[Rfam]
RNA: ClpQY promoter
RNA sequence: CCCCGCGUGAAGCGCGGGGCCCCUAUUCCGCUUUUGUAACCAAGGGGUCUGCUCGUG
Dot-bracket structure: ((((((((...))))))))......................................